Record summary: The family of this 77-nucleotide sequence from Listeria grayi is "L17 ribosomal protein downstream element". The source organism's lineage runs through Bacteria, Bacillota, Caryophanales, Listeria and Listeria grayi.
[Rfam]
RNA sequence: GGAGUGUCAUGAUAUGUGUUUCAACCGAAACGCACUGUCUAGCUCUGUGCGUCUCUCCCUCUCUUCCAGAGGGUGAG
Numbered sequence: 001g002g003a004g005u006g007u008c009a010u011g012a013u014a015u016g017u018g019u020u021u022c023a024a025c026c027g028a029a030a031c032g033c034a035c036u037g038u039c040u041a042g043c044u045c046u047g048u049g050c051g052u053c054u055c056u057c058c059c060u061c062u063c064u065u066c067c068a069g070a071g072g073g074u075g076a077g
Stems, first nucleotide, its partner, number of pairs: 002045004011039003015034006053077003057073005

The family's consensus secondary structure is taken from published work. A search with the family's covariance model found it, with a score of 38 bits.